[Rfam]
RNA: Bacterial large subunit ribosomal RNA, nucleotides 2256 to 2841
RNA sequence: CGCGCGGCAGGACGGAAAGACCCCGGGACCUUUACUAUAGCUUGGUAUUGGUGUUCGGUUCGGCUUGUGUAGGAUAGGUGGGAGACUGUGAUGUGGUCACGCCAGUGGCUGCGGAGUCGUCGUUGAAAUACCACUCUGGUCGUACUGGAUGUCUAACCUCGGACCCUGAUCGGGUUCAGGGACAGUGCCUGGUGGGUAGUUUAACUGGGGCGGUUGCCUCCCAAAGGGUAACGGAGGCGCCCAAAGGUUCCCUCAGCCUGGUUGGCAAUCAGGUGUUGAGUGUAAGUGCACAAGGGAGCUUGACUGUGAGACUGACGGGUCGAGCAGGGACGAAAGUCGGGACUAGUGAUCCGGCACUGGCUGGUGGAAGCGGUGUCGCUCAACGGAUAAAAGGUACCCCGGGGAUAACAGGCUGAUCUUGCCCAAGAGUCCAUAUCGACGGCAUGGUUUGGCACCUCGAUGUCGGCUCGUCGCAUCCUGGGGCUGGAGUAGGUCCCAAGGGUUGGGCUGUUCGCCCAUUAAAGCGGCACGCGAGCUGGGUUUAGAACGUCGUGAGACAGUUCGGUCCCUAUCCGCCGCGCGCGUA
Numbered sequence: 001c002g003c004g005c006g007g008c009a010g011g012a013c014g015g016a017a018a019g020a021c022c023c024c025g026g027g028a029c030c031u032u033u034a035c036u037a038u039a040g041c042u043u044g045g046u047a048u049u050g051g052u053g054u055u056c057g058g059u060u061c062g063g064c065u066u067g068u069g070u071a072g073g074a075u076a077g078g079u080g081g082g083a084g085a086c087u088g089u090g091a092u093g094u095g096g097u098c099a100c101g102c103c104a105g106u107g108g109c110u111g112c113g114g115a116g117u118c119g120u121c122g123u124u125g126a127a128a129u130a131c132c133a134c135u136c137u138g139g140u141c142g143u144a145c146u147g148g149a150u151g152u153c154u155a156a157c158c159u160c161g162g163a164c165c166c167u168g169a170u171c172g173g174g175u176u177c178a179g180g181g182a183c184a185g186u187g188c189c190u191g192g193u194g195g196g197u198a199g200u201u202u203a204a205c206u207g208g209g210g211c212g213g214u215u216g217c218c219u220c221c222c223a224a225a226g227g228g229u230a231a232c233g234g235a236g237g238c239g240c241c242c243a244a245a246g247g248u249u250c251c252c253u254c255a256g257c258c259u260g261g262u263u264g265g266c267a268a269u270c271a272g273g274u275g276u277u278g279a280g281u282g283u284a285a286g287u288g289c290a291c292a293a294g295g296g297a298g299c300u301u302g303a304c305u306g307u308g309a310g311a312c313u314g315a316c317g318g319g320u321c322g323a324g325c326a327g328g329g330a331c332g333a334a335a336g337u338c339g340g341g342a343c344u345a346g347u348g349a350u351c352c353g354g355c356a357c358u359g360g361c362u363g364g365u366g367g368a369a370g371c372g373g374u375g376u377c378g379c380u381c382a383a384c385g386g387a388u389a390a391a392a393g394g395u396a397c398c399c400c401g402g403g404g405a406u407a408a409c410a411g412g413c414u415g416a417u418c419u420u421g422c423c424c425a426a427g428a429g430u431c432c433a434u435a436u437c438g439a440c441g442g443c444a445u446g447g448u449u450u451g452g453c454a455c456c457u458c459g460a461u462g463u464c465g466g467c468u469c470g471u472c473g474c475a476u477c478c479u480g481g482g483g484c485u486g487g488a489g490u491a492g493g494u495c496c497c498a499a500g501g502g503u504u505g506g507g508c509u510g511u512u513c514g515c516c517c518a519u520u521a522a523a524g525c526g527g528c529a530c531g532c533g534a535g536c537u538g539g540g541u542u543u544a545g546a547a548c549g550u551c552g553u554g555a556g557a558c559a560g561u562u563c564g565g566u567c568c569c570u571a572u573c574c575g576c577c578g579c580g581c582g583c584g585u586a
Base pairs, nucleotide, nucleotide: 001582002581003580004579005578006577007576008575010574011573012572014569015568022403023402024401025400026399027398028395029394030393031392032391034200035199036198037197041192042191044189045188046187047186050153051152052151053150054149055148056147057146058145059144061142062141063140064139065138067136077135078134079133080132081131084118085117086116093112094111095110096109097108098107099106100105157180158179159178161177162176163175164174165173166172203215204214205213206212216238217237218236219235220234221233239384241341242340247299248298249297250296251295252294253279254278256274257273258272259271260270261269280289281288304327305326306325307324310321311320312319329338330337331336352378353377354376355375356374357373358372360371361370412453413452414451416450417447418446420444421443422442423441427437428436464539465537466536467535468534469531470528471527472526473525474524477502478501480497481496482495483494484493485492504518505517506516507515508514545563546562547561548560549558550557551556